[Rfam]
RNA: mir-504 microRNA precursor family
Organism: Rattus norvegicus
RNA sequence: CUGUUGGGAGACCCUGGUCUGCACUCUGUCUGGAAACUUACAGAAGGGAGAGCAGGGCAGGGUUUCCCAUACAGAG
Numbered sequence: 001c002u003g004u005u006g007g008g009a010g011a012c013c014c015u016g017g018u019c020u021g022c023a024c025u026c027u028g029u030c031u032g033g034a035a036a037c038u039u040a041c042a043g044a045a046g047g048g049a050g051a052g053c054a055g056g057g058c059a060g061g062g063u064u065u066c067c068c069a070u071a072c073a074g075a076g
Stems, first nucleotide, its partner, number of pairs: 001074004005069012018056005024050004029044002032041001034039001